[Rfam]
RNA sequence: UCGCAAUCCGCCAACCGGUCAAGCCGUGUCGCGGAAGGUUCAUAACCAGCCGAUAGCUCCGGAAGCCGGGGCAGAGGUGAGCG
Numbered sequence: 001u002c003g004c005a006a007u008c009c010g011c012c013a014a015c016c017g018g019u020c021a022a023g024c025c026g027u028g029u030c031g032c033g034g035a036a037g038g039u040u041c042a043u044a045a046c047c048a049g050c051c052g053a054u055a056g057c058u059c060c061g062g063a064a065g066c067c068g069g070g071g072c073a074g075a076g077g078u079g080a081g082c083g
Base pairs, nucleotide, nucleotide: 002083003082004081007035008034009033010032011031016026017025018024019023037047038046039045040044049078050077051076056072057071058070059069060068061067062066

Description
This 83-nucleotide RNA sequence from Mitsuaria sp. 7 belongs to the Rfam family "SucA RNA motif". Rfam links the family to the GO term regulation of translation. Lineage of the source: Bacteria > Pseudomonadati > Pseudomonadota > Burkholderiales > Roseateles. The family's RNA type in Rfam is cis-regulatory element. A reference for the family is Weinberg et al. (2007), "Identification of 22 candidate structured RNAs in bacteria using the CMfinder comparative genomics pipeline", Nucleic Acids Res.